[Rfam]
RNA sequence: CAGUUUUUUAAUCCUGAAUGGCGAAGUUAAACGUUUGUUCUUCAUUUGAUUGCACAAAAACGCAGCAAUGGCGUAAGACGUACUGGGAAAUCAAAUAAUUAGCGGGCUACGGGUAGCAGAUUACUGGAAUCGGAUCAAAUCAGCUUCAUUUAUAUUUGCAGAUUAUUCCUAGAAAAGGGUACUGUUUUCUAAGUGAAAAUUCAGACCUGCCGAAAAUAUGCGUCUCUAUACAAACGACAACCGGGAGGUUGGCGGAUUUGUAAAAGACACGAGACCAUCGGUUACCAGUCGCUCAUCUAUAUUUGCCCGUAGCUCUAUAACUAA
Numbered sequence: 001c002a003g004u005u006u007u008u009u010a011a012u013c014c015u016g017a018a019u020g021g022c023g024a025a026g027u028u029a030a031a032c033g034u035u036u037g038u039u040c041u042u043c044a045u046u047u048g049a050u051u052g053c054a055c056a057a058a059a060a061c062g063c064a065g066c067a068a069u070g071g072c073g074u075a076a077g078a079c080g081u082a083c084u085g086g087g088a089a090a091u092c093a094a095a096u097a098a099u100u101a102g103c104g105g106g107c108u109a110c111g112g113g114u115a116g117c118a119g120a121u122u123a124c125u126g127g128a129a130u131c132g133g134a135u136c137a138a139a140u141c142a143g144c145u146u147c148a149u150u151u152a153u154a155u156u157u158g159c160a161g162a163u164u165a166u167u168c169c170u171a172g173a174a175a176a177g178g179g180u181a182c183u184g185u186u187u188u189c190u191a192a193g194u195g196a197a198a199a200u201u202c203a204g205a206c207c208u209g210c211c212g213a214a215a216a217u218a219u220g221c222g223u224c225u226c227u228a229u230a231c232a233a234a235c236g237a238c239a240a241c242c243g244g245g246a247g248g249u250u251g252g253c254g255g256a257u258u259u260g261u262a263a264a265a266g267a268c269a270c271g272a273g274a275c276c277a278u279c280g281g282u283u284a285c286c287a288g289u290c291g292c293u294c295a296u297c298u299a300u301a302u303u304u305g306c307c308c309g310u311a312g313c314u315c316u317a318u319a320a321c322u323a324a
Stems, first nucleotide, its partner, number of pairs: 003032004012023001014021002042098001044096006053087001055085002060081003065072002104315011123289005132168004140162002143159002178207003182204003186198004209282005222275005235254002238251005
RNA: RNase E 5' UTR element
Organism: Photorhabdus laumondii